[Rfam]
RNA sequence: AUUUGUCGUGUGUCUUGUUUGAAAUAUUGUCCAAACAAGGCUUGCAGCAGUUAAAUCA
Dot-bracket structure: .......((..((((((((((..........))))))))))..)).............